A member of the RNA family "Group II catalytic intron D1-D4-2" from Amycolatopsis taiwanensis, 119 nucleotides long. The base pairs follow the family's consensus structure. Rfam links the family to the GO term Group II intron splicing.

RNA sequence: GAAGGUGGGCCCUUCGGGAUCGCUGUGCAGGCGGAGAUCUCAAACCGCCCUGUGUUGCUGCGGUGAAUGAGUCGUGGUGGUGAGCGACAGGGAAAAGGCACUGCGAGACGGUGUCAGGU
Dot-bracket structure: (((((.....)))))((((((.((((....)))).))))))....(.((((((((.(((.((((......)))).))).)).....))))))....((((((.......))))))..).
Group II introns are found in rRNA, tRNA and mRNA of organelles in fungi, plants and protists, and also in mRNA in bacteria.